[Rfam]
RNA: ylbH leader
RNA sequence: AAAAAUAGCGAGGCCCUAUAAAAUAGGGCCUCUAUCCAAAAAAAUGGGAGAGGAGAAACCGGAUGAAGAACUUAUGGGGAAACGUAAGUCUUCUCCGCGG
Numbered sequence: 001a002a003a004a005a006u007a008g009c010g011a012g013g014c015c016c017u018a019u020a021a022a023a024u025a026g027g028g029c030c031u032c033u034a035u036c037c038a039a040a041a042a043a044a045u046g047g048g049a050g051a052g053g054a055g056a057a058a059c060c061g062g063a064u065g066a067a068g069a070a071c072u073u074a075u076g077g078g079g080a081a082a083c084g085u086a087a088g089u090c091u092u093c094u095c096c097g098c099g100g
Base pairs, nucleotide, nucleotide: 011031012030013029014028015027016026017025018024019023032047033046034045035044060097061096062095063094065093066092067091068090070089071088072087073086074085